Rfam assigns this 158-nucleotide RNA sequence to the family "c-di-AMP riboswitch aptamer (ydaO/yuaA leader)". The match comes from Rfam's covariance-model search (65 bits).
RNA sequence: AAUCCGCACUCACCUAAGAAUCGGCAGGAGCGGGGAAACCACAGGUAGUAGGCCGGGUCCCGAGUGGACCGGCUAGGGGUGAAGUCGUGCCGUAUCACGGCCGGGCAUCUCCAGCCCGAACCCGACAGCUCACCUCGCAGGCGCCGGAGAGGAAUCCG
Numbered sequence: 001a002a003u004c005c006g007c008a009c010u011c012a013c014c015u016a017a018g019a020a021u022c023g024g025c026a027g028g029a030g031c032g033g034g035g036a037a038a039c040c041a042c043a044g045g046u047a048g049u050a051g052g053c054c055g056g057g058u059c060c061c062g063a064g065u066g067g068a069c070c071g072g073c074u075a076g077g078g079g080u081g082a083a084g085u086c087g088u089g090c091c092g093u094a095u096c097a098c099g100g101c102c103g104g105g106c107a108u109c110u111c112c113a114g115c116c117c118g119a120a121c122c123c124g125a126c127a128g129c130u131c132a133c134c135u136c137g138c139a140g141g142c143g144c145c146g147g148a149g150a151g152g153a154a155u156c157c158g
Base pairs, nucleotide, nucleotide: 003029004028005027030138031137032136033135034134035133040076077123078122079121085100086099087098088097103117104116105115106114